[Rfam]
RNA sequence: GCUAUUGCCUUUAUGGCUGUCCGACCUUAGCUAGAGAGCGUCACUUCGGUGACUACGAUGGUAGACUGUUAAGUGAAAUAGACUCGACGGACCCGGAGGGCAGUACUCCGGCGCCUCCACCAACAGCCGCGGAUAGCAAGCCACUGUUGUUGAUGGGGGCGAAACAGGAUCGACGUGUGUAGUAAAGACUUGAUUGCCAUCCGGCGUGAUUGAGCCGUUAAACCGAUCAUUUUUAUAAGUGCCAACGAUAACGAGGUACUCGCUGUUGCUGCGUAAUGGAAACCUUCACGGGUAGACAUUACUAAGUAAGAGCGCGGUUGGGCUGCACCGGGCAACAGAAGCAGAUUCC
Numbered sequence: 001g002c003u004a005u006u007g008c009c010u011u012u013a014u015g016g017c018u019g020u021c022c023g024a025c026c027u028u029a030g031c032u033a034g035a036g037a038g039c040g041u042c043a044c045u046u047c048g049g050u051g052a053c054u055a056c057g058a059u060g061g062u063a064g065a066c067u068g069u070u071a072a073g074u075g076a077a078a079u080a081g082a083c084u085c086g087a088c089g090g091a092c093c094c095g096g097a098g099g100g101c102a103g104u105a106c107u108c109c110g111g112c113g114c115c116u117c118c119a120c121c122a123a124c125a126g127c128c129g130c131g132g133a134u135a136g137c138a139a140g141c142c143a144c145u146g147u148u149g150u151u152g153a154u155g156g157g158g159g160c161g162a163a164a165c166a167g168g169a170u171c172g173a174c175g176u177g178u179g180u181a182g183u184a185a186a187g188a189c190u191u192g193a194u195u196g197c198c199a200u201c202c203g204g205c206g207u208g209a210u211u212g213a214g215c216c217g218u219u220a221a222a223c224c225g226a227u228c229a230u231u232u233u234u235a236u237a238a239g240u241g242c243c244a245a246c247g248a249u250a251a252c253g254a255g256g257u258a259c260u261c262g263c264u265g266u267u268g269c270u271g272c273g274u275a276a277u278g279g280a281a282a283c284c285u286u287c288a289c290g291g292g293u294a295g296a297c298a299u300u301a302c303u304a305a306g307u308a309a310g311a312g313c314g315c316g317g318u319u320g321g322g323c324u325g326c327a328c329c330g331g332g333c334a335a336c337a338g339a340a341g342c343a344g345a346u347u348c349c
Stems, first nucleotide, its partner, number of pairs: 040053005057201005068194007083179001085177001087176003093111005112161007202217004207229003211225002315330004320347002323344003
Rfam assigns this 349-nucleotide sequence from Zymomonas mobilis to the family "Alphaproteobacteria transfer-messenger RNA". Pairs were carried over by alignment from the consensus structure, which is taken from published work. Rfam links the family to the GO term RNA catabolic process. It is one of the family's seed sequences. Bacterial tmRNA, also known as 10Sa RNA or SsrA, is named for its dual tRNA and mRNA-like properties. Lineage of the source: Bacteria > Pseudomonadati > Zymomonadaceae > Zymomonas > Zymomonas mobilis subsp. mobilis.